[Rfam]
A member of the RNA family "Potassium channel RNA editing signal" from Caenorhabditis elegans, 114 nucleotides long.
The family has 85 seed sequences and 14,095 matches in Rfam 15.1.
It is annotated as a cis-regulatory element.
A reference for the family is Bhalla et al. (2004), "Control of human potassium channel inactivation by editing of a small mRNA hairpin", Nat Struct Mol Biol.
Rfam links the family to the GO term adenosine to inosine editing.
NCBI's taxonomy places the organism under Eukaryota, Opisthokonta, Bilateria, Rhabditomorpha, Caenorhabditis.
RNA sequence: GUUGGUUUUGGUGACAUGGUCCCUAAAACUUAUUUAGGAAUGCUGGUCGGAUCACUUUGUGCACUGAUGGGUGUACUCACAAUUGCUCUUCCAGUUCCAGUUAUUGUAUCCAAC
Numbered sequence: 001g002u003u004g005g006u007u008u009u010g011g012u013g014a015c016a017u018g019g020u021c022c023c024u025a026a027a028a029c030u031u032a033u034u035u036a037g038g039a040a041u042g043c044u045g046g047u048c049g050g051a052u053c054a055c056u057u058u059g060u061g062c063a064c065u066g067a068u069g070g071g072u073g074u075a076c077u078c079a080c081a082a083u084u085g086c087u088c089u090u091c092c093a094g095u096u097c098c099a100g101u102u103a104u105u106g107u108a109u110c111c112a113a114c
Base pairs, nucleotide, nucleotide: 001114002113004111005110007108009106010105011104013102014101015100018097019096021094037077038076040074050062